[Rfam]
SAM riboswitch aptamer (S box leader): a 115-nucleotide sequence from Oceanobacillus halophilus. Lineage of the source: Bacteria > Bacillota > Bacilli > Caryophanales > Oceanobacillus.
RNA sequence: UUCUUAUUAAGAGAGGUGGAGGGGUAUGGCCCUUUGAAGCCUCGGCAGCGGGCUCACGUCAUGUGAGUACUGUGCCAAUUCCAUCAAACAGCUUGUUCUGUUUGAAAGAUAAGAA
Numbered sequence: 001u002u003c004u005u006a007u008u009a010a011g012a013g014a015g016g017u018g019g020a021g022g023g024g025u026a027u028g029g030c031c032c033u034u035u036g037a038a039g040c041c042u043c044g045g046c047a048g049c050g051g052g053c054u055c056a057c058g059u060c061a062u063g064u065g066a067g068u069a070c071u072g073u074g075c076c077a078a079u080u081c082c083a084u085c086a087a088a089c090a091g092c093u094u095g096u097u098c099u100g101u102u103u104g105a106a107a108g109a110u111a112a113g114a115a
Stems, first nucleotide, its partner, number of pairs: 001115008013043005021032003026084004044076004049072002052068004080107001085104006